[Rfam]
RNA sequence: CCUGCUGUCUCACCAGCAGUUCCUUACCCGACCGUGCGUUAAAAGCAAUUUCAGGGUGCGAAGCGUCGGGGACAACGUAGCCACGGAUAAUCCGUAGGAGCGGAUCGUGAGAUUCAAUCCAAAACUGCCAGCCGCGGGUGGUGAAGGCC
Dot-bracket structure: .((((((......))))))........((((((((((.((.(((....))).)).)))))....))))).............(((((...))))).(((.....((....)).....)))...((((((.......)))))).......

Rfam assigns this 149-nucleotide RNA sequence from Budvicia aquatica to the family "Group II catalytic intron D1-D4-7".
Group II introns are found in rRNA, tRNA and mRNA of organelles in fungi, plants and protists, and also in mRNA in bacteria.